[Rfam]
RNA sequence: AAGAAAGCGACUGCUGCCCCGCACAGGGGCGAAGCCAAUAGACCAAUAUCAAAGCAAGUUUCAUAGAAGCGCAAGCGCAUCAAACGAACAAAACCCCAACCCCAAGCGCCAG
Numbered sequence: 001a002a003g004a005a006a007g008c009g010a011c012u013g014c015u016g017c018c019c020c021g022c023a024c025a026g027g028g029g030c031g032a033a034g035c036c037a038a039u040a041g042a043c044c045a046a047u048a049u050c051a052a053a054g055c056a057a058g059u060u061u062c063a064u065a066g067a068a069g070c071g072c073a074a075g076c077g078c079a080u081c082a083a084a085c086g087a088a089c090a091a092a093a094c095c096c097c098a099a100c101c102c103c104a105a106g107c108g109c110c111a112g
Base pairs, nucleotide, nucleotide: 012079013078014077015031016030017029018028019027020026058070060067061066

Burkholderia sRNA Bp1_Cand684_SIPHT: a 112-nucleotide RNA sequence from Caballeronia glathei. A reference for the family is Khoo et al. (2012), "Computational discovery and RT-PCR validation of novel Burkholderia conserved and Burkholderia pseudomallei unique sRNAs", BMC Genomics. It is annotated as a small RNA. The organism belongs to Caballeronia, within Bacteria.